[Rfam]
RNA sequence: CGCCCGGAAAACAGGUCGGGGACCGCUCGGAGCUGAGUUUGCUCAGUCCCCGAGCGGUCUCCGAGUGGUCCCGAGCG
Number, nucleotide and partner (000 for none) at each position: 001c077002g076003c075004c000005c073006g072007g071008a000009a069010a000011a000012c067013a066014g000015g000016u000017c063018g062019g061020g060021g059022a058023c057024c056025g055026c054027u053028c052029g051030g048031a047032g000033c046034u045035g044036a043037g042038u000039u000040u000041g000042c037043u036044c035045a034046g033047u031048c030049c000050c000051c029052g028053a027054g026055c025056g024057g023058u022059c021060u020061c019062c018063g017064a000065g000066u013067g012068g000069u009070c000071c007072c006073g005074a000075g003076c002077g001
Epstein-Barr virus stable intronic sequence RNA 2: a 77-nucleotide RNA sequence from Symbiodinium sp. CCMP2456. On this family, see Moss et al., RNA Biol 2014: "RNA families in Epstein-Barr virus". The family's RNA type in Rfam is non-coding RNA gene. A search with the family's covariance model found it, with a score of 49 bits. The source organism's lineage runs through Eukaryota, Sar, Alveolata, Dinophyceae and Symbiodinium. The pairing is the family consensus, mapped onto this sequence.